[Rfam]
RNA: U2 spliceosomal RNA
Organism: Ascobolus immersus
RNA sequence: CUCGCUCUCUUUGCCUUUGGCUUAGAUCAUGUGUAGUAGUAAGUACACCGUUCUUGGCGUUCCUCGGGGUUCCUUGGCUAACAAUACAUACAGUCUGUUCUUUUUAGUUUAAUCACUAAAAUGGAUCCAUUGGAUCCGUUUAUGAUUAUACUUAUUUUUGUACCCUGAAGGAUUGUCACUGGGCUUGCUCACACUCUCCUUCACAGUGUCUCUGGUAUUACACUGCCUCCAGAUGACGCGAACACAC
Numbered sequence: 001c002u003c004g005c006u007c008u009c010u011u012u013g014c015c016u017u018u019g020g021c022u023u024a025g026a027u028c029a030u031g032u033g034u035a036g037u038a039g040u041a042a043g044u045a046c047a048c049c050g051u052u053c054u055u056g057g058c059g060u061u062c063c064u065c066g067g068g069g070u071u072c073c074u075u076g077g078c079u080a081a082c083a084a085u086a087c088a089u090a091c092a093g094u095c096u097g098u099u100c101u102u103u104u105u106a107g108u109u110u111a112a113u114c115a116c117u118a119a120a121a122u123g124g125a126u127c128c129a130u131u132g133g134a135u136c137c138g139u140u141u142a143u144g145a146u147u148a149u150a151c152u153u154a155u156u157u158u159u160g161u162a163c164c165c166u167g168a169a170g171g172a173u174u175g176u177c178a179c180u181g182g183g184c185u186u187g188c189u190c191a192c193a194c195u196c197u198c199c200u201u202c203a204c205a206g207u208g209u210c211u212c213u214g215g216u217a218u219u220a221c222a223c224u225g226c227c228u229c230c231a232g233a234u235g236a237c238g239c240g241a242a243c244a245c246a247c
Stems, first nucleotide, its partner, number of pairs: 008083001010081001013078003102121006122138007167202006180191004206239005211233005
Dot-bracket structure: .......(.(..(((............................................................)))..).)..................((((((........))))))(((((((...)))))))............................((((((.......((((....)))).....))))))...((((((((((.............))))).)))))........